Rfam assigns this 97-nucleotide RNA from Phtheirospermum japonicum to the family "Small nucleolar RNA snoR31/Z110/Z27". The family's RNA type in Rfam is C/D-box small nucleolar RNA. A search with the family's covariance model found it, with a score of 58 bits.
[Rfam]
RNA sequence: CGAAGAAGAUGAUGAAACAACAAAAUCUUAGGACACCUUCUGACACAGUCUUGACAAUGCUGUGUAUGAGAAAACAGAUUUCGUUUCUGAUACUUCA
Numbered sequence: 001c002g003a004a005g006a007a008g009a010u011g012a013u014g015a016a017a018c019a020a021c022a023a024a025a026u027c028u029u030a031g032g033a034c035a036c037c038u039u040c041u042g043a044c045a046c047a048g049u050c051u052u053g054a055c056a057a058u059g060c061u062g063u064g065u066a067u068g069a070g071a072a073a074a075c076a077g078a079u080u081u082c083g084u085u086u087c088u089g090a091u092a093c094u095u096c097a
Stems, first nucleotide, its partner, number of pairs: 002096004007091001041047002

This family contains several related snoRNAs including R31, Z27 and Z110.